[Rfam]
This 149-nucleotide sequence from Sporolactobacillus putidus belongs to the Rfam family "Ribosomal protein L10 leader". Its family is annotated with regulation of gene expression in the Gene Ontology. The family's consensus secondary structure was predicted with CMfinder. Rfam's curators write: This family is a putative r-protein leader autoregulatory structure found in B. subtilis and other low-GC Gram-positive bacteria. It is located in the 5' untranslated regions of mRNAs encoding ribosomal proteins L10 and L12 (rplJ-rplL). A Rho-independent transcription terminator structure that is probably involved in regulation is included at the 3' end. Rfam classes the family as a cis-regulatory leader. For this family Rfam cites "Diverse mechanisms for regulating ribosomal protein synthesis in Escherichia coli" (Zengel and Lindahl, Prog Nucleic Acid Res Mol Biol, 1994). Taxonomically the source falls in Sporolactobacillus (Bacteria, Bacillati, Bacillota, Sporolactobacillaceae).
RNA sequence: UAAUUAAAUCAUUGAUUACCGUAGACAGCAGGGGCAUGUUCAAUGCUUAAUUUUUCCCAGCCGAGGUUUGCAAAUUCUUGAUAACCCUUUUUGCGUUGGAUAGAUGCGUACCCUCAUGUCAAUCGGCUUGAGGGUUUUUUAUUGAACCU
Numbered sequence: 001u002a003a004u005u006a007a008a009u010c011a012u013u014g015a016u017u018a019c020c021g022u023a024g025a026c027a028g029c030a031g032g033g034g035c036a037u038g039u040u041c042a043a044u045g046c047u048u049a050a051u052u053u054u055u056c057c058c059a060g061c062c063g064a065g066g067u068u069u070g071c072a073a074a075u076u077c078u079u080g081a082u083a084a085c086c087c088u089u090u091u092u093g094c095g096u097u098g099g100a101u102a103g104a105u106g107c108g109u110a111c112c113c114u115c116a117u118g119u120c121a122a123u124c125g126g127c128u129u130g131a132g133g134g135u136u137u138u139u140u141a142u143u144g145a146a147c148c149u
Stems, first nucleotide, its partner, number of pairs: 028061002031058003034046003111134006118127003